[Rfam]
RNA sequence: GGAUUGUGAGGGGUCACUCUAGGCACUGUAGCACUGUGCUAAGGAUAUUGCAGCUGUCUGGGAGUGACUUUGCACAUUCC
Numbered sequence: 001g002g003a004u005u006g007u008g009a010g011g012g013g014u015c016a017c018u019c020u021a022g023g024c025a026c027u028g029u030a031g032c033a034c035u036g037u038g039c040u041a042a043g044g045a046u047a048u049u050g051c052a053g054c055u056g057u058c059u060g061g062g063a064g065u066g067a068c069u070u071u072g073c074a075c076a077u078u079c080c
Base pairs, nucleotide, nucleotide: 001080002079003078005076006075007074008073010071011070012069013068014067015066016065017064018063019062020060021059022058023057024056025055026053028051029050030049031048033046034044035043
The record is an 80-nucleotide RNA sequence from Jaculus jaculus, which matches "mir-1301 microRNA precursor family" in Rfam. Pairs were carried over by alignment from the consensus structure, which was predicted with RNAalifold. Taxonomically the source falls in Jaculus (Eukaryota, Bilateria, Theria, Dipodoidea). Rfam links the family to the GO terms miRNA-mediated post-transcriptional gene silencing and RISC complex.